Shown here is a 258-nucleotide RNA from Streptomyces sp. AVP053U2, a member of the family "Streptomyces sRNA 4677". A reference for the family is Hindra et al. (2014), "Complex intra-operonic dynamics mediated by a small RNA in Streptomyces coelicolor", PLoS One. Rfam describes the family as follows. Located in the intergenic region between anti-sigma factor SCO4677 gene and a putative regulatory protein gene SCO4676. scr4677 expression requires the SCO4677 activity and scr4677 sRNA itself seem to affect the levels of the SCO4676-associated transcripts. Rfam 15.1 lists 563 matches to the family in 285 species.

[Rfam]
RNA sequence: UGUUCCGGUGCCGUCGGCCGUCUUUUCCAAGGACCACGGGAGAGAAAGAAACCCCACCAAGCCCCACCCCUCCCGCCCACGGCGCACACUCACUCGCGCGAGUGAACAUCACCAACUGGAGUGGAUAUGCCACAGGUUGCCUGCCCUACGCUCAGCGCAACACAGCACGGCACACAACCCCAGACACACAAACGGCCCCCGCCGGGAGUGACGUCCCGUUGCGAGGGCCUGCCCACCAAGGAAGAAAGCCCCUUCCCG
Number, nucleotide and partner (000 for none) at each position: 001u000002g000003u000004u000005c000006c000007g237008g236009u235010g234011c000012c000013g000014u000015c000016g077017g076018c075019c000020g074021u000022c000023u000024u000025u000026u000027c000028c000029a000030a000031g000032g000033a000034c000035c000036a000037c000038g000039g000040g000041a000042g000043a000044g000045a000046a000047a000048g000049a000050a000051a000052c000053c000054c000055c000056a000057c000058c000059a000060a000061g000062c000063c000064c000065c000066a000067c000068c000069c000070c000071u000072c000073c000074c020075g018076c017077c016078c000079a000080c000081g000082g000083c000084g000085c000086a000087c000088a000089c000090u105091c104092a103093c102094u101095c100096g000097c000098g000099c000100g095101a094102g093103u092104g091105a090106a000107c000108a000109u000110c000111a000112c000113c000114a000115a000116c000117u000118g000119g000120a000121g000122u154123g153124g152125a000126u000127a000128u000129g000130c000131c000132a000133c000134a000135g000136g000137u000138u000139g000140c000141c000142u000143g000144c000145c000146c000147u000148a000149c000150g000151c000152u124153c123154a122155g000156c000157g000158c000159a000160a000161c000162a000163c000164a000165g000166c000167a000168c000169g000170g000171c000172a000173c000174a000175c000176a000177a000178c000179c000180c000181c000182a000183g000184a000185c000186a000187c000188a000189c000190a000191a000192a000193c000194g229195g228196c227197c226198c225199c000200c223201g222202c221203c000204g217205g216206g215207a214208g000209u000210g000211a000212c000213g000214u207215c206216c205217c204218g000219u000220u000221g202222c201223g200224a000225g198226g197227g196228c195229c194230u000231g000232c000233c000234c010235a009236c008237c007238a000239a000240g256241g255242a254243a253244g252245a000246a000247a000248g000249c000250c000251c000252c244253u243254u242255c241256c240257c000258g000
Rfam classes the family as a small RNA. NCBI's taxonomy places the organism under Bacteria, Bacillati, Actinomycetes, Streptomycetaceae, Streptomyces.